A member of the RNA family "Ribosomal S15 leader" from Saccharobesus litoralis, 113 nucleotides long. Rfam links the family to the GO term regulation of translation, ncRNA-mediated. About the family: The E. coli Ribosomal S15 gene 5' UTR can form two alternative structures. One that is a series of three hairpins, The other includes a pseudoknot. This structure causes translational regulation of the S15 protein. The alignment of this family contains only the final two hairpins which are conserved in other species, and also includes the complete region that forms the alternate structures. The family is grouped with related families in Rfam's "Ribosomal Protein S15 Leader clan". NCBI's taxonomy places the organism under Bacteria, Pseudomonadati, Pseudomonadota, Alteromonadaceae, Saccharobesus.
RNA sequence: UUGAUUGGCUGAAUUAGUGAUCGGCUAAUCGUUAAUUUAAAUAUUUGGAGUCAAAUAUGUCACUAAGUGCACAAGAAAAAGCAACAAUCGUUGCUGAGUACGCGACAAAAGAA
Number, nucleotide and partner (000 for none) at each position: 001u000002u000003g000004a000005u000006u000007g026008g025009c024010u023011g022012a021013a000014u000015u000016a000017g000018u000019g000020a000021u012022c011023g010024g009025c008026u007027a000028a000029u000030c000031g000032u000033u000034a000035a000036u000037u000038u000039a000040a000041a000042u000043a000044u067045u066046u065047g064048g063049a000050g061051u000052c000053a000054a000055a000056u000057a000058u000059g000060u000061c050062a000063c048064u047065a046066a045067g044068u000069g000070c000071a000072c000073a000074a000075g000076a000077a000078a000079a000080a000081g000082c000083a000084a000085c000086a000087a000088u000089c000090g000091u000092u000093g000094c000095u000096g000097a000098g000099u000100a000101c000102g000103c000104g000105a000106c000107a000108a000109a000110a000111g000112a000113a000